[Rfam]
RNA sequence: UCAACGGAGAGUUUGAUCCUGGCUCAGGAUGAACGCUGGCGGCGUGCCUAACACAUGCAAGUCGAACGAUGAAACCGCCCCCGGGCGGACAUGAAGUGGCGAACGGGUGAGUAACACGUGACCGACCUGCCCCCCGCCCAGGGACAGCCCCCCGAAAGGGGGAUUAAUACCUGGUACUCCGGGAGCGGCGCAUGCCGCCCCCGGGAAAGCUCUCGCGGCGGGGGAUGGGGUCGCGGCCCAUCAGGUAGACGGCGGGGCAGAGGCCCACCGUGCCGACGACGGGUAGCCGGGUUGAGAGACCGACCGGCCACAUUGGGACUGAGAUACGGCCCAGACUCCUACGGGAGGCAGCAGUGGGGAAUUUUGCGCAAUGGGGGCAACCCUGACGCAGCAACGCCGCGUGCGGGACGAAGGCGUCCGCGUCGUAAACCGCUUUCAGCGGGGAACACCUAACGAGGGUACCCGCAGAAGAAGCCCCGGCUAAAUACGUGCCAGCAGCCGCGGUAAUACGUAUGGGGCGAGCGUUAUCCGGAUUCAUUG
Number, nucleotide and partner (000 for none) at each position: 001u000002c000003a000004a000005c000006g000007g000008a000009g025010a024011g023012u022013u021014u000015g000016a000017u000018c000019c000020u000021g013022g012023c011024u010025c009026a000027g530028g529029a528030u527031g000032a526033a525034c524035g523036c522037u521038g000039g400040c399041g398042g397043c396044g395045u393046g392047c358048c000049u000050a000051a000052c356053a355054c354055a000056u353057g352058c351059a000060a000061g100062u099063c098064g000065a000066a097067c096068g000069a092070u091071g000072a000073a000074a000075c088076c087077g086078c085079c084080c000081c000082c000083g000084g079085g078086c077087g076088g075089a000090c000091a070092u069093g000094a000095a000096g067097u066098g063099g062100c061101g000102a000103a000104c000105g000106g000107g311108u310109g309110a000111g000112u000113a000114a000115c000116a000117c235118g234119u233120g232121a231122c230123c229124g000125a000126c228127c227128u000129g000130c000131c224132c223133c222134c221135c220136g219137c218138c000139c173140a172141g171142g170143g000144a000145c000146a000147g164148c000149c162150c161151c160152c159153c158154g000155a000156a000157a000158g153159g152160g151161g150162g149163a000164u147165u000166a000167a000168u000169a000170c142171c141172u140173g139174g000175u000176a000177c000178u000179c204180c203181g202182g201183g200184a000185g198186c000187g196188g195189c194190g000191c000192a000193u000194g189195c188196c187197g000198c185199c000200c183201c182202c181203g180204g179205g000206a000207a000208a000209g216210c215211u000212c000213u000214c000215g210216c209217g000218g137219c136220g135221g134222g133223g132224g131225a000226u000227g127228g126229g123230g122231u121232c120233g119234c118235g117236g000237c283238c282239c281240a000241u000242c000243a000244g274245g273246u272247a000248g000249a271250c270251g269252g268253c000254g266255g265256g264257g000258c000259a000260g000261a000262g000263g000264c256265c255266c254267a000268c252269c251270g250271u249272g246273c245274c244275g000276a000277c000278g000279a000280c000281g239282g238283g237284u000285a000286g308287c307288c306289g305290g301291g300292u299293u298294g000295a000296g000297a000298g293299a292300c291301c290302g000303a000304c000305c289306g288307g287308c286309c109310a108311c107312a000313u334314u333315g332316g331317g330318a000319c000320u000321g000322a000323g000324a000325u000326a000327c000328g000329g000330c317331c316332c315333a314334g313335a000336c347337u346338c345339c344340u000341a000342c000343g000344g339345g338346a337347g336348g000349c000350a000351g058352c057353a056354g054355u053356g052357g000358g047359g000360a000361a000362u000363u000364u390365u000366g389367c388368g387369c000370a000371a000372u385373g384374g383375g382376g381377g000378c000379a000380a000381c376382c375383c374384u373385g372386a000387c368388g367389c366390a364391g000392c046393a045394a000395c044396g043397c042398c041399g040400c039401g000402u000403g433404c432405g431406g430407g000408a000409c000410g000411a000412a000413g424414g423415c422416g421417u000418c000419c000420g000421c416422g415423u414424c413425g000426u000427a000428a000429a000430c406431c405432g404433c403434u000435u000436u000437c471438a000439g466440c465441g464442g463443g462444g000445a000446a000447c457448a000449c000450c000451u000452a000453a000454c000455g000456a000457g447458g000459g000460u000461a000462c443463c442464c441465g440466c439467a000468g000469a000470a000471g437472a000473a000474g519475c518476c517477c516478c515479g000480g000481c000482u000483a000484a000485a514486u513487a512488c511489g510490u000491g000492c000493c000494a000495g502496c501497a000498g000499c000500c000501g496502c495503g000504g000505u000506a000507a000508u000509a000510c489511g488512u487513a486514u485515g478516g477517g476518g475519c474520g000521a037522g036523c035524g034525u033526u032527a030528u029529c028530c027531g000532g000533a000534u000535u000536c000537a000538u000539u000540g000
RNA: Bacterial small subunit ribosomal RNA, nucleotides 1 to 540